[Rfam]
Rfam assigns this 61-nucleotide sequence from Pristionchus pacificus to the family "mir-8364 microRNA precursor family".
NCBI's taxonomy places the organism under Eukaryota, Eumetazoa, Bilateria, Chromadorea, Pristionchus.

RNA sequence: UCUUCAUUCCUUACAGUCUCUCACCGGUCAGACAGACGAGAUAGUGUGUGAAAUGAAGAGA
Numbered sequence: 001u002c003u004u005c006a007u008u009c010c011u012u013a014c015a016g017u018c019u020c021u022c023a024c025c026g027g028u029c030a031g032a033c034a035g036a037c038g039a040g041a042u043a044g045u046g047u048g049u050g051a052a053a054u055g056a057a058g059a060g061a
Stems, first nucleotide, its partner, number of pairs: 001059007010050001012048004017043001019041004
Pairs were carried over by alignment from the consensus structure, which was predicted with RNAalifold.